[Rfam]
RNA sequence: AUAAUAACAGGGAAUGAAGUUCUCCCUCGGAAUAAACCGAAACCGCGUAAAGCUGAUGACUUCUGCAACUUU
Number, nucleotide and partner (000 for none) at each position: 001a000002u000003a000004a000005u000006a000007a000008c000009a000010g026011g025012g024013a023014a000015u000016g063017a062018a061019g060020u059021u058022c000023u013024c012025c011026c010027u000028c000029g000030g000031a000032a000033u000034a000035a000036a000037c000038c000039g000040a000041a000042a000043c000044c000045g053046c052047g000048u000049a000050a000051a000052g046053c045054u000055g000056a000057u000058g021059a020060c019061u018062u017063c016064u000065g000066c000067a000068a000069c000070u000071u000072u000

The record is a 72-nucleotide sequence from Dielma fastidiosa, which matches "Fluoride riboswitch aptamer (crcB RNA motif)" in Rfam. A search with the family's covariance model found it, with a score of 47 bits. Lineage of the source: Bacteria > Erysipelotrichia > Erysipelotrichales > Erysipelotrichaceae > Dielma.